[Rfam]
The family of this 56-nucleotide sequence from Lactuca saligna is "Plastid-psbA-3 3UTR RNA". About the family: Plastid psbA-3 is a non-coding RNA (ncRNA) present in plastids. It was identified in inverted repeat sequences in the 3 prime untranslate region (3UTR) of photosystem II quinone-binding protein (psbA). Pairs were carried over by alignment from the consensus structure, which was predicted with LocARNA.
RNA sequence: AAAGGAGCAAUAGCUUCCUUCUUGUUUUAUCAAGAGGCGUUAUUUCUCCUUUUUUA
Number, nucleotide and partner (000 for none) at each position: 001a052002a051003a050004g049005g048006a047007g046008c000009a044010a043011u042012a041013g040014c039015u000016u000017c000018c000019u036020u035021c034022u033023u032024g031025u000026u000027u000028u000029a000030u000031c024032a023033a022034g021035a020036g019037g000038c000039g014040u013041u012042a011043u010044u009045u000046c007047u006048c005049c004050u003051u002052u001053u000054u000055u000056a000
Taxonomically the source falls in Lactuca (Eukaryota, Streptophytina, Embryophyta, Pentapetalae). On this family, see Richter et al., Plant Commun 2023: "Retrograde signaling in plants: A critical review focusing on the GUN pathway and beyond".